Small nucleolar RNA SNORD26: a 74-nucleotide RNA from Rhipidura dahli. The family's consensus secondary structure was predicted with PFOLD. The family's RNA type in Rfam is C/D-box small nucleolar RNA.

RNA sequence: CUGCGGGGAUGAUCCCCCUGAACUCUCUCUUGCUGAAGCGCUCGUGGAGAAGCUUUGAACAGGCUCUGAGUGGC
Numbered sequence: 001c002u003g004c005g006g007g008g009a010u011g012a013u014c015c016c017c018c019u020g021a022a023c024u025c026u027c028u029c030u031u032g033c034u035g036a037a038g039c040g041c042u043c044g045u046g047g048a049g050a051a052g053c054u055u056u057g058a059a060c061a062g063g064c065u066c067u068g069a070g071u072g073g074c
Stems, first nucleotide, its partner, number of pairs: 001073004

Clan: SNORD26 clan.